[Rfam]
RNA sequence: UAAAUGGACCCAAAGGCAGUAUUUGGUAUUUCCAUUAUCUUUAAAUGGGGAUAAUAAUAGAAUUGACAUCUA
Number, nucleotide and partner (000 for none) at each position: 001u072002a071003a000004a069005u068006g067007g000008a000009c000010c026011c025012a024013a023014a022015g000016g000017c000018a000019g000020u000021a000022u014023u013024u012025g011026g010027u053028a052029u051030u050031u049032c048033c047034a000035u000036u000037a000038u000039c000040u000041u000042u000043a000044a000045a000046u000047g033048g032049g031050g030051a029052u028053a027054a000055u000056a000057a000058u000059a000060g000061a000062a000063u000064u000065g000066a000067c006068a005069u004070c000071u002072a001
The record is a 72-nucleotide RNA from Phytophthora lilii, which matches "Mitochondrion-encoded tmRNA" in Rfam.
A search with the family's covariance model found it, with a score of 82 bits.